[Rfam]
RNA sequence: GCUCGCCGUGCGCCGCACGGAGGGUGGACCGGGGACCCACCGCAGCACUGGGGUGAAGCGCCCCGACGACUCCCCGCGAGCCGUCGAGGGGCCGGGCGUCCUUCCCGCCCGAACCCGUCAGCUAACUCGGUAGGCGGUCGCGGAAGAAAGG
Numbered sequence: 001g002c003u004c005g006c007c008g009u010g011c012g013c014c015g016c017a018c019g020g021a022g023g024g025u026g027g028a029c030c031g032g033g034g035a036c037c038c039a040c041c042g043c044a045g046c047a048c049u050g051g052g053g054u055g056a057a058g059c060g061c062c063c064c065g066a067c068g069a070c071u072c073c074c075c076g077c078g079a080g081c082c083g084u085c086g087a088g089g090g091g092c093c094g095g096g097c098g099u100c101c102u103u104c105c106c107g108c109c110c111g112a113a114c115c116c117g118u119c120a121g122c123u124a125a126c127u128c129g130g131u132a133g134g135c136g137g138u139c140g141c142g143g144a145a146g147a148a149a150g151g
Base pairs, nucleotide, nucleotide: 004136005135006134007133011027028131029130030129031128032127033126038050039049051116052115053114059091061089062088094110095109096108097107
RNA: c-di-AMP riboswitch aptamer (ydaO/yuaA leader)
Organism: Petropleomorpha daqingensis